RNA sequence: GAUCACGAAGCUCGGCCGCAAGCCCUCCGGCCGGCCGACUGGCAACCGCGCGGAGCGCACGGUGCCCCCGGAGGAAGAUCCGCCCGCGCCGACCGGUGCGGGAAGACGCUCGAC
Numbered sequence: 001g002a003u004c005a006c007g008a009a010g011c012u013c014g015g016c017c018g019c020a021a022g023c024c025c026u027c028c029g030g031c032c033g034g035c036c037g038a039c040u041g042g043c044a045a046c047c048g049c050g051c052g053g054a055g056c057g058c059a060c061g062g063u064g065c066c067c068c069c070g071g072a073g074g075a076a077g078a079u080c081c082g083c084c085c086g087c088g089c090c091g092a093c094c095g096g097u098g099c100g101g102g103a104a105g106a107c108g109c110u111c112g113a114c
Stems, first nucleotide, its partner, number of pairs: 001080004009040001012038005022031001041066003046062003050058002083102008

Rfam assigns this 114-nucleotide RNA from Cellulomonas flavigena to the family "SAM (S-adenosyl methionine) riboswitch aptamer".
A reference for the family is Weinberg et al. (2008), "The aptamer core of SAM-IV riboswitches mimics the ligand-binding site of SAM-I riboswitches", RNA.
Rfam 15.1 lists 2,360 matches to the family in 1,305 species.
The organism belongs to Cellulomonas flavigena, within Bacteria.